[Rfam]
Nucleotides: 117
Stems, first nucleotide, its partner, number of pairs: 003071011015060003019056001021055004025050004032044002098115005104109001
Number, partner (000 for none) and nucleotide at each position: 001000a002000c003071g004070g005069g006068a007067u008066g009065c010064c011063u012062c013061g014000c015060u016059g017058a018000u019056c020000g021055u022054g023053c024052g025050u026049g027048a028047u029000g030000a031000a032044g033043c034000c035000u036000u037000c038000g039000a040000c041000a042000a043033g044032c045000c046000c047028a048027u049026c050025a051000u052024c053023g054022c055021a056019g057000g058017u059016c060015a061013c062012g063011g064010g065009g066008c067007a068006u069005c070004c071003c072000a073000u074000u075000u076000g077000u078000c079000c080000u081000u082000u083000c084000c085000g086000c087000g088000a089000u090000c091000c092000g093000a094000a095000c096000a097000a098115c099114g100113g101112u102111c103000a104109g105000c106000c107000g108000g109104u110000g111102g112101a113100u114099c115098g116000a117000g